[Rfam]
RNA sequence: UUUCCGCUUCUUUCCUCCCUGAGCGGAAGCCUUAGACAAUAAGGCAUUUCGCCCCAACUCUUUCCCCUUUGAGUUGGGGCUUUUUUUU
Numbered sequence: 001u002u003u004c005c006g007c008u009u010c011u012u013u014c015c016u017c018c019c020u021g022a023g024c025g026g027a028a029g030c031c032u033u034a035g036a037c038a039a040u041a042a043g044g045c046a047u048u049u050c051g052c053c054c055c056a057a058c059u060c061u062u063u064c065c066c067c068u069u070u071g072a073g074u075u076g077g078g079g080c081u082u083u084u085u086u087u088u
Base pairs, nucleotide, nucleotide: 003027004026005025006024007023008022029045030044031043032042033041034040052079053078054077055076056075057074058073059072

Notes: A member of the RNA family "Burkholderia RNA 7 (anti-hemB)" from Methylotenera versatilis, 88 nucleotides long. For this family Rfam cites "Experimental identification of small non-coding regulatory RNAs in the opportunistic human pathogen Burkholderia cenocepacia J2315" (Ramos et al., Genomics, 2013). This RNA motif was identified by computational search in b-proteobacteria Burkholderia. Co-purified with Hfq, expression confirmed by Northern blot. Rfam classes the family as a small RNA.